purD RNA motif: a 129-nucleotide RNA sequence from Helicobacter mustelae. The family's RNA type in Rfam is cis-regulatory element. The literature on the family includes a 2007 paper in Nucleic Acids Res by Weinberg et al., "Identification of 22 candidate structured RNAs in bacteria using the CMfinder comparative genomics pipeline".
[Rfam]
RNA sequence: GUGGAUUUUGUGUGUUCGAUAUUUUUGUUUGAGAUUUUUUAGAAAAUUGAGAAUCUAUCGCCUAAUAAAUUCCUUCUAGCCUUAUUGUUAGCUUUUGGGCUCAACAUUUUAAAUAGCGGUUAUUUGGGU
Numbered sequence: 001g002u003g004g005a006u007u008u009u010g011u012g013u014g015u016u017c018g019a020u021a022u023u024u025u026u027g028u029u030u031g032a033g034a035u036u037u038u039u040u041a042g043a044a045a046a047u048u049g050a051g052a053a054u055c056u057a058u059c060g061c062c063u064a065a066u067a068a069a070u071u072c073c074u075u076c077u078a079g080c081c082u083u084a085u086u087g088u089u090a091g092c093u094u095u096u097g098g099g100c101u102c103a104a105c106a107u108u109u110u111a112a113a114u115a116g117c118g119g120u121u122a123u124u125u126g127g128g129u
Stems, first nucleotide, its partner, number of pairs: 001074001004072002007069002017060005024053003033048006088103001090101004